[Rfam]
RNA sequence: CAUUAUUCCCCGGGGGGCUGCGCCUGAGCAGCUGAGAGGUAGCUGAGGCUACGACCCGUUUGAACCUGAUCCCGUUAGCACGGGCGGAGGGAGGGAGCGGUGUCCACAG
Numbered sequence: 001c002a003u004u005a006u007u008c009c010c011c012g013g014g015g016g017g018c019u020g021c022g023c024c025u026g027a028g029c030a031g032c033u034g035a036g037a038g039g040u041a042g043c044u045g046a047g048g049c050u051a052c053g054a055c056c057c058g059u060u061u062g063a064a065c066c067u068g069a070u071c072c073c074g075u076u077a078g079c080a081c082g083g084g085c086g087g088a089g090g091g092a093g094g095g096a097g098c099g100g101u102g103u104c105c106a107c108a109g
Stems, first nucleotide, its partner, number of pairs: 006097005011058004017032005039052005065090003071084004

The family of this 109-nucleotide RNA from Sphingomonas sp. TF3 is "TPP riboswitch aptamer (THI element)". Taxonomically the source falls in Sphingomonas (Bacteria, Pseudomonadati, Pseudomonadota, Sphingomonadales).